[Rfam]
RNA sequence: AGAACGGGCCUUUCAGGCAUCCUCUCCCAAACUUUCCAAGGCCAGCCUUCGUGCUGGCCUUUCUUUUUUCGCAAGC
Number, nucleotide and partner (000 for none) at each position: 001a000002g000003a000004a000005c000006g000007g000008g018009c017010c016011u015012u000013u000014c000015a011016g010017g009018c008019a000020u000021c000022c000023u000024c000025u000026c000027c000028c000029a000030a000031a000032c000033u000034u000035u000036c000037c000038a061039a060040g059041g058042c057043c056044a055045g054046c053047c000048u000049u000050c000051g000052u000053g046054c045055u044056g043057g042058c041059c040060u039061u038062u000063c000064u000065u000066u000067u000068u000069u000070c000071g000072c000073a000074a000075g000076c000
Rfam assigns this 76-nucleotide RNA from Novosphingobium sp. MD-1 to the family "Makes More Granules Regulator RNA (mmgR)". The pairing is the family consensus, mapped onto this sequence. The family's RNA type in Rfam is small RNA. The organism belongs to Novosphingobium, within Bacteria. The match comes from Rfam's covariance-model search (43 bits).